RNA sequence: ACAUGGGUUAGGAUCCUCUGCAGUACUGUACGGUGUUGUACAGUCACUGCCAUGUGGGACCUGGCCCCACAUGUCAUUCACACUACAGCACCAUACGGUAUUGCAGAGGAUCUCAACCCUCC
Numbered sequence: 001a002c003a004u005g006g007g008u009u010a011g012g013a014u015c016c017u018c019u020g021c022a023g024u025a026c027u028g029u030a031c032g033g034u035g036u037u038g039u040a041c042a043g044u045c046a047c048u049g050c051c052a053u054g055u056g057g058g059a060c061c062u063g064g065c066c067c068c069a070c071a072u073g074u075c076a077u078u079c080a081c082a083c084u085a086c087a088g089c090a091c092c093a094u095a096c097g098g099u100a101u102u103g104c105a106g107a108g109g110a111u112c113u114c115a116a117c118c119c120u121c122c
Stems, first nucleotide, its partner, number of pairs: 005119005011113020032092009051073008060064001
MIR5084 microRNA precursor family: a 122-nucleotide sequence from Triticum aestivum. A search with the family's covariance model found it, with a score of 114 bits.